[Rfam]
RNA sequence: CCGGCGGGGAAACCGUUACCAUUACUGAGUUUAGUAAUGGUAACGGUUCUGCUGACGG
Numbered sequence: 001c002c003g004g005c006g007g008g009g010a011a012a013c014c015g016u017u018a019c020c021a022u023u024a025c026u027g028a029g030u031u032u033a034g035u036a037a038u039g040g041u042a043a044c045g046g047u048u049c050u051g052c053u054g055a056c057g058g
Stems, first nucleotide, its partner, number of pairs: 001058003005054003011048004016043012
mir-451 microRNA precursor family: a 58-nucleotide RNA sequence from Zosterops hypoxanthus.
The match comes from Rfam's covariance-model search (71 bits).
The literature on the family includes a 2009 paper in Blood by Pase et al., "miR-451 regulates zebrafish erythroid maturation in vivo via its target gata2".
The source organism's lineage runs through Eukaryota, Neognathae, Neoaves, Australaves and Zosterops.
Pairs were carried over by alignment from the consensus structure, which was predicted with RNAalifold.